[Rfam]
RNA sequence: CUUCUGCCCUCCCCGCACAGGGGGGCAGAGCGAGACCGCGGCGCUCUCUGCCCUGACUGCGCCACGGUCUCCGGGCUCCGGGCUGCGGUGCCGGGCGGGUUGAGGGUCCCGCUCUGGUAC
Numbered sequence: 001c002u003u004c005u006g007c008c009c010u011c012c013c014c015g016c017a018c019a020g021g022g023g024g025g026c027a028g029a030g031c032g033a034g035a036c037c038g039c040g041g042c043g044c045u046c047u048c049u050g051c052c053c054u055g056a057c058u059g060c061g062c063c064a065c066g067g068u069c070u071c072c073g074g075g076c077u078c079c080g081g082g083c084u085g086c087g088g089u090g091c092c093g094g095g096c097g098g099g100u101u102g103a104g105g106g107u108c109c110c111g112c113u114c115u116g117g118u119a120c
Stems, first nucleotide, its partner, number of pairs: 003029004008024005032071005038065001040063002043060002045056002075089003079085002093114007
Background: Shown here is a 120-nucleotide sequence from Streptomyces sp. WMMB 714, a member of the family "Streptomyces sRNA scr5239". For this family Rfam cites "Identification of metE as a second target of the sRNA scr5239 in Streptomyces coelicolor" (Vockenhuber et al., PLoS One, 2015). NCBI's taxonomy places the organism under Bacteria, Actinomycetota, Actinomycetes, Streptomycetaceae, Streptomyces. It is annotated as a small RNA.